A member of the RNA family "Lysine riboswitch aptamer" from Planomicrobium sp. CPCC 101110, 188 nucleotides long.

RNA sequence: UUGAUGGAUAGAGGCCGCGAAGCUUAUCAGUAUGAUACGGGAGUUUAACAGCGUUGAACGUAUCGGAAAGGAAGUUUCGCCGAAACUUGUUUAGCAAUUGUUAUAGACAAACAGGUUGGGGGCAUUUUGAAGAAGGAUGCCACUGUCAUUUAUGUUCGUUCGGGCAUAAAUGGAGAGCUAUAGGAUUG
Dot-bracket structure: .......((((.....(((((((((.......(((((((...................)))))))......)))))))))...(((((((((..(..........)..)))))))))((.((((((((.....)))))))).)).((((((((((........))))))))))....)))).......
The organism belongs to Planomicrobium, within Bacteria.